[Rfam]
RNA sequence: CGCCGUCGCGCGGGAGAGUUUCGGUGGCAGUUCUGCACGCAGGGCAGCCACUGAACGCCGAAGGAGCAGCACCUCCCCGUUAAUCUCUCAGGCACCGAGGACCGCGCGAGCUUC
Numbered sequence: 001c002g003c004c005g006u007c008g009c010g011c012g013g014g015a016g017a018g019u020u021u022c023g024g025u026g027g028c029a030g031u032u033c034u035g036c037a038c039g040c041a042g043g044g045c046a047g048c049c050a051c052u053g054a055a056c057g058c059c060g061a062a063g064g065a066g067c068a069g070c071a072c073c074u075c076c077c078c079g080u081u082a083a084u085c086u087c088u089c090a091g092g093c094a095c096c097g098a099g100g101a102c103c104g105c106g107c108g109a110g111c112u113u114c
Stems, first nucleotide, its partner, number of pairs: 006109008020055009057093003060089002064087003071080002